The family of this 130-nucleotide RNA sequence from Populus alba is "MIR480 microRNA precursor family". The match comes from Rfam's covariance-model search (74 bits). Rfam 15.1 lists 3,070 matches to the family in 171 species. On this family, see Lu et al., Plant Cell 2005: "Novel and mechanical stress-responsive MicroRNAs in Populus trichocarpa that are absent from Arabidopsis". The organism belongs to Populus, within Eukaryota.
[Rfam]
RNA sequence: UAAUCUGUUUGGGGCAGAUCCUCAUCUAGUUGUGAUAGACCUACAUCUAAUUAUCUAAAAUUACGUGUUAUUACAAACCCAACUGCAUCAGUAUAAUAAUUAACACUAAUUAUGGAUUUUGGAGUUGAAA
Number, nucleotide and partner (000 for none) at each position: 001u000002a000003a000004u128005c127006u000007g125008u123009u122010u000011g000012g119013g000014g117015c000016a000017g000018a113019u112020c000021c000022u000023c000024a000025u108026c000027u105028a000029g104030u103031u102032g000033u000034g000035a000036u000037a000038g000039a000040c000041c000042u000043a000044c000045a000046u000047c000048u000049a000050a000051u000052u000053a000054u000055c000056u000057a000058a000059a000060a000061u000062u000063a000064c000065g000066u000067g000068u000069u000070a000071u000072u000073a000074c000075a000076a000077a000078c000079c000080c000081a000082a000083c000084u000085g000086c000087a000088u000089c000090a000091g000092u000093a000094u000095a000096a000097u000098a000099a000100u000101u000102a031103a030104c029105a027106c000107u000108a025109a000110u000111u000112a019113u018114g000115g000116a000117u014118u000119u012120u000121g000122g009123a008124g000125u007126u000127g005128a004129a000130a000